[Rfam]
RNA: TD-2 RNA
RNA sequence: ACCGCCACGGAUGGCGGUGGUUCUACGCAGCAGCGAGUUUUGUGCACAAAACUCGUUUUUUUCCGACAUACACGGAUGUAUGUCGGAAAAAAGUG
Numbered sequence: 001a002c003c004g005c006c007a008c009g010g011a012u013g014g015c016g017g018u019g020g021u022u023c024u025a026c027g028c029a030g031c032a033g034c035g036a037g038u039u040u041u042g043u044g045c046a047c048a049a050a051a052c053u054c055g056u057u058u059u060u061u062u063c064c065g066a067c068a069u070a071c072a073c074g075g076a077u078g079u080a081u082g083u084c085g086g087a088a089a090a091a092a093g094u095g
Base pairs, nucleotide, nucleotide: 001018002017003016004015005014006013034055035054036053037052038051039050040049041048042047058091059090060089061088062087063086064085065084066083067082068081069080070079071078